[Rfam]
RNA sequence: GUACAAUGAUGGCAAUUUUUUUUCAUCAAUAGUGUGUCACUUCCUGAGUGUUGAUACUUUAGGUCUAAGAAA
Numbered sequence: 001g002u003a004c005a006a007u008g009a010u011g012g013c014a015a016u017u018u019u020u021u022u023u024c025a026u027c028a029a030u031a032g033u034g035u036g037u038c039a040c041u042u043c044c045u046g047a048g049u050g051u052u053g054a055u056a057c058u059u060u061a062g063g064u065c066u067a068a069g070a071a072a
Stems, first nucleotide, its partner, number of pairs: 002071001004069001008027004
RNA: Small nucleolar RNA SNORD56